Shown here is a 116-nucleotide RNA from Arthrobacter mobilis, a member of the family "SAM (S-adenosyl methionine) riboswitch aptamer". The family is grouped with related families in Rfam's "SAM clan". It scores 86 bits against the family's covariance model. SAM-IV is a mRNA element that regulates gene expression via direct sensing of S-adenosylmethionine (SAM or AdoMet).

RNA sequence: AAUCAAGAGUGCCAACGCGAAGCCCUGGCUUGUUGGCCGGCAACCCUCCCGCAGUAGCGGGGUGCUCCAGGUGAAGAUUCGGCCCGCCGGAACAACCGGCGCGGCAAGUACCGCGC
Numbered sequence: 001a002a003u004c005a006a007g008a009g010u011g012c013c014a015a016c017g018c019g020a021a022g023c024c025c026u027g028g029c030u031u032g033u034u035g036g037c038c039g040g041c042a043a044c045c046c047u048c049c050c051g052c053a054g055u056a057g058c059g060g061g062g063u064g065c066u067c068c069a070g071g072u073g074a075a076g077a078u079u080c081g082g083c084c085c086g087c088c089g090g091a092a093c094a095a096c097c098g099g100c101g102c103g104g105c106a107a108g109u110a111c112c113g114c115g116c
Stems, first nucleotide, its partner, number of pairs: 001079004009038001011037006021030002039066003044062003048057001082105003086100005